[Rfam]
RNA sequence: AAGUUUGAUUCGCUUAAUUUCCUGAAUAUAGGAAAACGGGGGACCCAUUAGGAUAAUAUGAGGCGUAUUCCGAAAGGAUAGAGCAACUCUUUCAGCUCGAGCCUGUCAGCUAACCUCGUAAGCGUUGAAAGGGAGUGAA
Number, nucleotide and partner (000 for none) at each position: 001a000002a000003g000004u000005u000006u000007g000008a000009u000010u000011c124012g123013c122014u121015u000016a000017a000018u035019u034020u033021c032022c031023u030024g029025a000026a000027u000028a000029u024030a023031g022032g021033a020034a019035a018036a119037c118038g117039g116040g115041g114042g000043a000044c000045c000046c060047a059048u000049u000050a000051g000052g000053a000054u000055a000056a000057u000058a000059u047060g046061a104062g103063g102064c000065g000066u000067a000068u000069u078070c077071c076072g000073a000074a000075a000076g071077g070078a069079u000080a000081g098082a097083g096084c095085a000086a000087c000088u000089c000090u000091u000092u000093c000094a000095g084096c083097u082098c081099g000100a000101g000102c063103c062104u061105g000106u000107c000108a000109g000110c000111u000112a000113a000114c041115c040116u039117c038118g037119u036120a000121a014122g013123c012124g011125u000126u000127g000128a000129a000130a000131g000132g000133g000134a000135g000136u000137g000138a000139a000
This 139-nucleotide RNA from Mahella australiensis belongs to the Rfam family "c-di-AMP riboswitch aptamer (ydaO/yuaA leader)".
Its family is annotated with regulation of gene expression and cyclic-di-AMP binding in the Gene Ontology.
The source organism's lineage runs through Bacteria, Bacillati, Clostridia, Mahella and Mahella australiensis.
The match comes from Rfam's covariance-model search (88 bits).